Rfam assigns this 87-nucleotide sequence from Gracilibacillus kekensis to the family "c-di-GMP-I riboswitch aptamer".
[Rfam]
RNA sequence: UAAUAGAAAAGGCAAAUCUAUUGAAAAAUAGAGACGCAAAACCACAGGUCUAAUGUGAGUAAUCACGAUGAUGGCUGGGUUACCUGA
Dot-bracket structure: ...........((...((((((....))))))...))..((((.((((((....((((....))))...)))..)))))))......
Numbered sequence: 001u002a003a004u005a006g007a008a009a010a011g012g013c014a015a016a017u018c019u020a021u022u023g024a025a026a027a028a029u030a031g032a033g034a035c036g037c038a039a040a041a042c043c044a045c046a047g048g049u050c051u052a053a054u055g056u057g058a059g060u061a062a063u064c065a066c067g068a069u070g071a072u073g074g075c076u077g078g079g080u081u082a083c084c085u086g087a
Stems, first nucleotide, its partner, number of pairs: 012037002017032006040081004045077003048072003055066004
GEMM was predicted in a large-scale screen for bacterial structured RNA regulatory elements. Genes associated with GEMM are involved in a diverse array of functions, including chemotaxis regulation, signal transduction, secretion and chitin.